[Rfam]
RNA sequence: GAUUUAUAUAGAAGCGGCGAGAGAACAGGCUCAGAAACCCGCUGGCAACCCUCCAAAGUGGAGAAGGUGCCAAUUCCUGACCCGGAAAUAAUUGACCCGGGGCAUAUAAAUG
Numbered sequence: 001g002a003u004u005u006a007u008a009u010a011g012a013a014g015c016g017g018c019g020a021g022a023g024a025a026c027a028g029g030c031u032c033a034g035a036a037a038c039c040c041g042c043u044g045g046c047a048a049c050c051c052u053c054c055a056a057a058g059u060g061g062a063g064a065a066g067g068u069g070c071c072a073a074u075u076c077c078u079g080a081c082c083c084g085g086a087a088a089u090a091a092u093u094g095a096c097c098c099g100g101g102g103c104a105u106a107u108a109a110a111u112g
Base pairs, nucleotide, nucleotide: 002111003110004109005108006107007106008105013043014042015041016040017039021032022031023030026079027078028077029076044071045070046069047068049067050066051063052062053061054060075104081101082100083099084098085097